[Rfam]
RNA sequence: AAACUGCCCCAUAAGUUUUGCAACUGUAGCAGUUUUGGCCCCCCAAGGCCAAUUUUGGGUAAAAAAAAAAAAAACGUGGCACCUCACUUAGGGUGCCACGUUAGCAUAGACCGAGUCAAAAUUGACUUUGGGGGCCAAAACUGCCAUAGAUGCAAAACUUAAGGGGCGGUUU
Numbered sequence: 001a002a003a004c005u006g007c008c009c010c011a012u013a014a015g016u017u018u019u020g021c022a023a024c025u026g027u028a029g030c031a032g033u034u035u036u037g038g039c040c041c042c043c044c045a046a047g048g049c050c051a052a053u054u055u056u057g058g059g060u061a062a063a064a065a066a067a068a069a070a071a072a073a074a075c076g077u078g079g080c081a082c083c084u085c086a087c088u089u090a091g092g093g094u095g096c097c098a099c100g101u102u103a104g105c106a107u108a109g110a111c112c113g114a115g116u117c118a119a120a121a122u123u124g125a126c127u128u129u130g131g132g133g134g135c136c137a138a139a140a141c142u143g144c145c146a147u148a149g150a151u152g153c154a155a156a157a158c159u160u161a162a163g164g165g166g167c168g169g170u171u172u
Stems, first nucleotide, its partner, number of pairs: 001172002004169005012161011024149004029144013043131004074101002077098007
Rfam assigns this 172-nucleotide RNA from Medicago truncatula to the family "MIR2619 microRNA precursor family". Pairs were carried over by alignment from the consensus structure, which was predicted with RNAalifold. It scores 146 bits against the family's covariance model.